[Rfam]
This 104-nucleotide sequence from Capsicum baccatum belongs to the Rfam family "Small nucleolar RNA snoR97". Rfam links the family to the GO terms nucleolus and RNA processing. The literature on the family includes a 2002 paper in Curr Biol by Marker et al., "Experimental RNomics: identification of 140 candidates for small non-messenger RNAs in the plant Arabidopsis thaliana". Lineage of the source: Eukaryota > Viridiplantae > Solanales > Capsiceae > Capsicum. By type it is an H/ACA-box small nucleolar RNA.

RNA sequence: CAGUGAUAGUGAGCGUAAAUGAAAACUCUUAAAUUGUGUGUAGUCCAUCACCUCUUAUCUUGCAUAUUUCACUAAGAUUGGAGUUAAAUAUCAACACUACAUGU
Numbered sequence: 001c002a003g004u005g006a007u008a009g010u011g012a013g014c015g016u017a018a019a020u021g022a023a024a025a026c027u028c029u030u031a032a033a034u035u036g037u038g039u040g041u042a043g044u045c046c047a048u049c050a051c052c053u054c055u056u057a058u059c060u061u062g063c064a065u066a067u068u069u070c071a072c073u074a075a076g077a078u079u080g081g082a083g084u085u086a087a088a089u090a091u092c093a094a095c096a097c098u099a100c101a102u103g104u
Base pairs, nucleotide, nucleotide: 038097039096040095041094043092050085052083053082054081055080058077059076060075061074